[Rfam]
RNA sequence: UUCUUAUCAAGAGUAGGUGGAGGGACUAGCCCGAUGAUACCCGGCAACCGGCGAAUUUUGCACGGUGCUAAUUCUUGCAGGAUCAGAUGCCCUGUCGGCGUAUGAUCUCUGAGAGAUGAGAG
Number, nucleotide and partner (000 for none) at each position: 001u122002u121003c120004u119005u118006a117007u116008c115009a000010a000011g000012a000013g042014u000015a000016g041017g040018u039019g000020g000021a000022g032023g031024g030025a000026c077027u000028a075029g074030c024031c023032c022033g000034a000035u000036g000037a000038u000039a018040c017041c016042c013043g069044g068045c067046a066047a000048c065049c064050g000051g061052c060053g059054a058055a000056u000057u000058u054059u053060g052061c051062a000063c000064g049065g048066u046067g045068c044069u043070a000071a000072u000073u114074c029075u028076u000077g026078c111079a110080g109081g108082a000083u000084c000085a000086g000087a000088u000089g000090c000091c000092c000093u000094g000095u000096c000097g000098g000099c000100g000101u000102a000103u000104g000105a000106u000107c000108u081109c080110u079111g078112a000113g000114a073115g008116a007117u006118g005119a004120g003121a002122g001
Rfam assigns this 122-nucleotide RNA from Paenibacillus lutimineralis to the family "SAM riboswitch aptamer (S box leader)". Pairs were carried over by alignment from the consensus structure, which is taken from published work. It scores 71 bits against the family's covariance model. Rfam links the family to the GO term regulation of gene expression. The organism belongs to Paenibacillus, within Bacteria.